[Rfam]
RNA sequence: ACGCCGUCCCGAGCGGCGUUCGCGGCCUCGAACGGGCCAUGGCGGGGGUGGUGCCGUGUCGGCGCAGCACCACCCCUUGC
Number, nucleotide and partner (000 for none) at each position: 001a019002c018003g017004c016005c015006g014007u013008c000009c000010c000011g000012a000013g007014c006015g005016g004017c003018g002019u001020u042021c041022g040023c000024g038025g037026c036027c035028u034029c000030g000031a000032a000033c000034g028035g027036g026037c025038c024039a000040u022041g021042g020043c000044g077045g076046g075047g074048g073049u072050g071051g070052u069053g068054c067055c000056g065057u064058g063059u000060c000061g000062g000063c058064g057065c056066a000067g054068c053069a052070c051071c050072a049073c048074c047075c046076c045077u044078u000079g000080c000
Shown here is an 80-nucleotide sequence from Streptomyces regalis, a member of the family "Streptomyces RNA 6106". About the family: Identified by deep sequencing of transcriptome at the end of exponential growth phase. Appears smaller on northern blot than sequencing transcript. This indicates processing step. Streptomyces specific. The family's RNA type in Rfam is small RNA. Pairs were carried over by alignment from the consensus structure.